Glycine riboswitch aptamer: a 114-nucleotide sequence from Peptoclostridium litorale. From the family's description: This family represents the bacterial glycine riboswitch. The match comes from Rfam's covariance-model search (60 bits). NCBI's taxonomy places the organism under Bacteria, Bacillota, Clostridia, Peptostreptococcales, Peptoclostridium litorale. Its Rfam clan is "Glycine riboswitch clan".
RNA sequence: AAGAAGGGUAUAGGAGAGAGCUUGCUACAGAUCAGCAGGCCGCCGAAGGGACAAGUCUUGUUUUUCCCAAAAAAGCAAGGUGAAAUUCUCAGGCAAAAGGACUAUAUCUGGACA
Numbered sequence: 001a002a003g004a005a006g007g008g009u010a011u012a013g014g015a016g017a018g019a020g021c022u023u024g025c026u027a028c029a030g031a032u033c034a035g036c037a038g039g040c041c042g043c044c045g046a047a048g049g050g051a052c053a054a055g056u057c058u059u060g061u062u063u064u065u066c067c068c069a070a071a072a073a074a075g076c077a078a079g080g081u082g083a084a085a086u087u088c089u090c091a092g093g094c095a096a097a098a099g100g101a102c103u104a105u106a107u108c109u110g111g112a113c114a
Stems, first nucleotide, its partner, number of pairs: 006109008020040007042094003045090002049088003055081011